[Rfam]
RNA sequence: UGAGAUCCCUUUAGGCUCAAACAGAUAAUGCAUUGAAUGAUAAAAACAUUGCUUUUUAUAUUCUGAUGCAGAUAGUCAGUGAGUAUAUCGCGCUACUUCAGGAUGAUGUAGAUCCGAAGAACGCUACAGAAGAGAGGCAUUGUUGCUGGCAAAUAGAAGAAGUAUCGGGUUUUGUUACCCCUGAAAAACGAAGCCCC
Dot-bracket structure: .......(..(.....(.......)......)..)...........................(((..((...(.((..((((.....)))))).).(((.((((.......)))))))....))..)))....................................................................
Overview: The family of this 197-nucleotide sequence from Escherichia coli is "IS009". The sequence is in the family's curated seed alignment. The organism belongs to Escherichia coli, within Bacteria.